[Rfam]
RNA: Guanidine-I riboswitch aptamer
Organism: Yoonia sediminilitoris
RNA sequence: GUGCAGGAUAACUAGGGUUCCGCCCACGUGCUGGGGUCAGGUCCAAGAGUUAUCGCCGUCUGCCCUCAGGUGGUUCGGUACACGGCGGGGCAAAAUCCCGGGAGGC
Numbered sequence: 001g002u003g004c005a006g007g008a009u010a011a012c013u014a015g016g017g018u019u020c021c022g023c024c025c026a027c028g029u030g031c032u033g034g035g036g037u038c039a040g041g042u043c044c045a046a047g048a049g050u051u052a053u054c055g056c057c058g059u060c061u062g063c064c065c066u067c068a069g070g071u072g073g074u075u076c077g078g079u080a081c082a083c084g085g086c087g088g089g090g091c092a093a094a095a096u097c098c099c100g101g102g103a104g105g106c
Base pairs, nucleotide, nucleotide: 007054008053009052010051011050012049015044016043020041021040022038023035024034025033026032055079056078057077058076061073081101083104087099088098089097